[Rfam]
RNA: Mammalian CPEB3 ribozyme
Organism: Crocodylus porosus
RNA sequence: UGUCGCAAACUGAAGGCCACAGUAGAAGCACUGACCGUGCAUCCCUGUCAGAUUCCAAUGAAUCUGCAAAUUCUGCU
Numbered sequence: 001u002g003u004c005g006c007a008a009a010c011u012g013a014a015g016g017c018c019a020c021a022g023u024a025g026a027a028g029c030a031c032u033g034a035c036c037g038u039g040c041a042u043c044c045c046u047g048u049c050a051g052a053u054u055c056c057a058a059u060g061a062a063u064c065u066g067c068a069a070a071u072u073c074u075g076c077u
Stems, first nucleotide, its partner, number of pairs: 015044002021077007028040003049066007